[Rfam]
Source information:
Shown here is a 409-nucleotide sequence from Pollutimonas harenae, a member of the family "Bacterial RNase P class A". Rfam classes the family as a ribozyme. Rfam describes the family as follows. Ribonuclease P (RNase P) is a ubiquitous endoribonuclease, found in archaea, bacteria and eukarya as well as chloroplasts and mitochondria. The base pairs follow the family's consensus structure, which is taken from published work. The source organism's lineage runs through Bacteria, Pseudomonadati, Betaproteobacteria, Alcaligenaceae and Pollutimonas.
RNA sequence: GAGGCAGGUUGGGCAAUCGCGGUACUUUCGAGUAUCGAGGAAGGUCCGGACUCCAUAGGGCAGGGUAGCGGCUAACGGCCGUCCGGCAAGGGCUUGUGCGUGGCACAAGACCGAGCCGAGGAACAGGGCCACAGAGACGAGUCUGCCGCGAGGGCAUGCAUUGCAUGCACCAGCACGGCUAUCUCCGUGCUGAGCAGCCGGUUUACCGGUUGCUGCGCGGCAGGGUGAAACGCGGCAACCUCUACCCGGAGCAACAUCAAAUAGGCAUGUGCAGGCUUCGGCCCGAGGGGCGGCUCGCUCCAGCAUGCGGGUAGAUGGCUAGAGUGACGCAGCAAUGCGGCACCCAGAGGAAUGAUUGCCCGCCGGUUCUACCGGCGUACAGAAUCCGGCCUACAGACCUGUCUCACCU
Dot-bracket structure: ((((((((((((((((((.(((((((....)))))))....[[[.[[[[[((((...[[[[.((((((((((.....)))))(((((...........................)))).)((...(((((............((((((((.((...........................................................)).)))))).)).........)))..)))))))))))))...((((......((((((................(((((.]]]]))))).)))))).....))))......(((.((((....)))).)))..........)))))))........................]]]]]]]].).))))))))))....
Numbered sequence: 001g002a003g004g005c006a007g008g009u010u011g012g013g014c015a016a017u018c019g020c021g022g023u024a025c026u027u028u029c030g031a032g033u034a035u036c037g038a039g040g041a042a043g044g045u046c047c048g049g050a051c052u053c054c055a056u057a058g059g060g061c062a063g064g065g066u067a068g069c070g071g072c073u074a075a076c077g078g079c080c081g082u083c084c085g086g087c088a089a090g091g092g093c094u095u096g097u098g099c100g101u102g103g104c105a106c107a108a109g110a111c112c113g114a115g116c117c118g119a120g121g122a123a124c125a126g127g128g129c130c131a132c133a134g135a136g137a138c139g140a141g142u143c144u145g146c147c148g149c150g151a152g153g154g155c156a157u158g159c160a161u162u163g164c165a166u167g168c169a170c171c172a173g174c175a176c177g178g179c180u181a182u183c184u185c186c187g188u189g190c191u192g193a194g195c196a197g198c199c200g201g202u203u204u205a206c207c208g209g210u211u212g213c214u215g216c217g218c219g220g221c222a223g224g225g226u227g228a229a230a231c232g233c234g235g236c237a238a239c240c241u242c243u244a245c246c247c248g249g250a251g252c253a254a255c256a257u258c259a260a261a262u263a264g265g266c267a268u269g270u271g272c273a274g275g276c277u278u279c280g281g282c283c284c285g286a287g288g289g290g291c292g293g294c295u296c297g298c299u300c301c302a303g304c305a306u307g308c309g310g311g312u313a314g315a316u317g318g319c320u321a322g323a324g325u326g327a328c329g330c331a332g333c334a335a336u337g338c339g340g341c342a343c344c345c346a347g348a349g350g351a352a353u354g355a356u357u358g359c360c361c362g363c364c365g366g367u368u369c370u371a372c373c374g375g376c377g378u379a380c381a382g383a384a385u386c387c388g389g390c391c392u393a394c395a396g397a398c399c400u401g402u403c404u405c406a407c408c409u
Stems, first nucleotide, its partner, number of pairs: 001405010011394001012360007020037007042392003046389005051251004058296004063247005068082005083120001084118004121242002126240002128236003143224002145221006152214002255317004265308006287301005324343003328339004